[Rfam]
RNA sequence: CCCUUGAAGUGUCACAUCAAACGAAAGUAGCUUCGGCAAAAUCGGACACACAGAAUAGGAAA
Numbered sequence: 001c002c003c004u005u006g007a008a009g010u011g012u013c014a015c016a017u018c019a020a021a022c023g024a025a026a027g028u029a030g031c032u033u034c035g036g037c038a039a040a041a042u043c044g045g046a047c048a049c050a051c052a053g054a055a056u057a058g059g060a061a062a
Base pairs, nucleotide, nucleotide: 002059003058004057009049010048011047012046013045022044023043024042030037031036
RAGATH-18 RNA: a 62-nucleotide RNA from Ammoniphilus oxalaticus. The family's RNA type in Rfam is small RNA. Lineage of the source: Bacteria > Bacillati > Bacillota > Paenibacillaceae > Ammoniphilus. Actinobacteria, Firmicutes, Fusobacteria, Thermotogae (1 example).